[Rfam]
RNA sequence: AGGUCACAAGUUUGAUGCCACAGCAGAAGUGCUCAGAGUGCAGCCAUGUCAAAUUCCAAUGAAUCUGCGAAUUCUGCU
Numbered sequence: 001a002g003g004u005c006a007c008a009a010g011u012u013u014g015a016u017g018c019c020a021c022a023g024c025a026g027a028a029g030u031g032c033u034c035a036g037a038g039u040g041c042a043g044c045c046a047u048g049u050c051a052a053a054u055u056c057c058a059a060u061g062a063a064u065c066u067g068c069g070a071a072u073u074c075u076g077c078u
Stems, first nucleotide, its partner, number of pairs: 013046002017044002022078007029041003050067002053064004
Rfam assigns this 78-nucleotide RNA from Alligator mississippiensis to the family "Mammalian CPEB3 ribozyme".
It scores 43 bits against the family's covariance model.
Lineage of the source: Eukaryota > Euteleostomi > Sauropsida > Sauria > Alligator.
Pairs were carried over by alignment from the consensus structure, which is taken from published work.